The family of this 106-nucleotide RNA from Clostridium sp. DSM 8431 is "THF (Tetrahydrofolate) riboswitch aptamer".
It scores 90 bits against the family's covariance model.
Taxonomically the source falls in Clostridium (Bacteria, Bacillota, Eubacteriales, Clostridiaceae).
Gene Ontology term of the family: tetrahydrofolate metabolic process.
[Rfam]
RNA sequence: AGCAGAGUAGAAUUACAUGCGUUAAGUGCUAGUUAUACAGGGAGUUGAUAACUAGACGAAAAGAUUGUUUAGAGAUCUUGCGGUUUGUAGUUCGCAUCCCGCUGCU
Numbered sequence: 001a002g003c004a005g006a007g008u009a010g011a012a013u014u015a016c017a018u019g020c021g022u023u024a025a026g027u028g029c030u031a032g033u034u035a036u037a038c039a040g041g042g043a044g045u046u047g048a049u050a051a052c053u054a055g056a057c058g059a060a061a062a063g064a065u066u067g068u069u070u071a072g073a074g075a076u077c078u079u080g081c082g083g084u085u086u087g088u089a090g091u092u093c094g095c096a097u098c099c100c101g102c103u104g105c106u
Base pairs, nucleotide, nucleotide: 001106002105003104004103005102010093011092012091013090014089015088016087017086019084020082021081022080026057027056029055030054031053032052033051034050035049036048040099041098042097044095061079062078063077064076065075066074